This 346-nucleotide RNA from Novacetimonas maltaceti belongs to the Rfam family "Alphaproteobacteria transfer-messenger RNA". Bacterial tmRNA, also known as 10Sa RNA or SsrA, is named for its dual tRNA and mRNA-like properties. By type it is a non-coding RNA gene.
RNA sequence: CAUCUUGCACCCGCGGGCCAUCAUCCCUAUAUCUGUCGGUGCCGGAGGGGUCCGCCCCUUGGCUAUGGCGAUAAACGGCGCGUGGAAUAAGUGUUGUGGACCCGGGGGCGGUACCCGGCGUUUCCACCAGUAUUUUCGCGAUGCGGCCCCGUGGGCCGGUGCAUCCGAAAGAUGGGAACGAAACAGGCUCGACACGCAUGGUAAAGACCCGCCUUUUGCCCGGCAUUGUACCGCCGUUAUCGGGCUAAACAUACAAGUGCCAAUGAUAACUCUGAGGUGCUCGCUGUCGCUGCAUAAGCGAUAAGCGCGGUCCGGGGGGGCACCGGGCAACAGAAGCCCCCCCACU
Dot-bracket structure: ........................................(((((.............)))))...(((((.....((((.((........(((.(((...(((((.......)))))(((((((................................................)))))))............))))))........)).))))..)))))((((.[.[..[[)))).....]].].]............................................................[[[[....(((((.]]]]............)))))....